About this RNA:
The family of this 274-nucleotide RNA sequence from Odontophorus gujanensis is "Metazoan signal recognition particle RNA". Rfam's curators write: The signal recognition particle (SRP) is a universally conserved ribonucleoprotein. It is involved in the co-translational targeting of proteins to membranes. On this family, see Rosenblad et al., Nucleic Acids Res 2003: "SRPDB: Signal Recognition Particle Database". Its family is annotated with signal recognition particle, endoplasmic reticulum targeting and SRP-dependent cotranslational protein targeting to membrane, signal sequence recognition in the Gene Ontology. By type it is a non-coding RNA gene. The organism belongs to Odontophorus, within Eukaryota. Pairs were carried over by alignment from the consensus structure, which is taken from published work. Its Rfam clan is "SRP clan".
RNA sequence: GCUGAGAGCUCCAGCUCCUAACCACUAGCCCAAGAGCAUCAGCUCACUUGAGCCCAGGAGUUCUGAGCUGCAGUGCGCUAUGCCGAGUGGGCGUCCGCACUAAGGCCGGUAUCAAUAUGGUGAGCCUCAGGGAGCCGGGGUACACCAGGUUGCCUAAGGAGGGGUGAACUGGCCCAGGUCGGAAACGGAGCAGGUCAAAACUCCCGUGUCGGUCAGUAGAGGGAUCACACCUGUGAAUAGCCACUGCAGCGUAGCCUGGGUAACACAGAGAGAC
Numbered sequence: 001g002c003u004g005a006g007a008g009c010u011c012c013a014g015c016u017c018c019u020a021a022c023c024a025c026u027a028g029c030c031c032a033a034g035a036g037c038a039u040c041a042g043c044u045c046a047c048u049u050g051a052g053c054c055c056a057g058g059a060g061u062u063c064u065g066a067g068c069u070g071c072a073g074u075g076c077g078c079u080a081u082g083c084c085g086a087g088u089g090g091g092c093g094u095c096c097g098c099a100c101u102a103a104g105g106c107c108g109g110u111a112u113c114a115a116u117a118u119g120g121u122g123a124g125c126c127u128c129a130g131g132g133a134g135c136c137g138g139g140g141u142a143c144a145c146c147a148g149g150u151u152g153c154c155u156a157a158g159g160a161g162g163g164g165u166g167a168a169c170u171g172g173c174c175c176a177g178g179u180c181g182g183a184a185a186c187g188g189a190g191c192a193g194g195u196c197a198a199a200a201c202u203c204c205c206g207u208g209u210c211g212g213u214c215a216g217u218a219g220a221g222g223g224a225u226c227a228c229a230c231c232u233g234u235g236a237a238u239a240g241c242c243a244c245u246g247c248a249g250c251g252u253a254g255c256c257u258g259g260g261u262a263a264c265a266c267a268g269a270g271a272g273a274c
Base pairs, nucleotide, nucleotide: 001029002028003027004019006017007016008015009014043272044271045270047268048267052261053260054259055258056257057256058255063254064253065252067250068249069248070247071246072245073244074243075242077241078240079239080238081237083235087234088233089232090231091230093228094227095223096222098221100219101218102217104214105213106212107211108210109209110208111207112206113152114151115150116149118147119146120145121144122143124141125140126139127138128137130135153159154158161204162203163202164201165200170197171196172195173194174193179188180187181186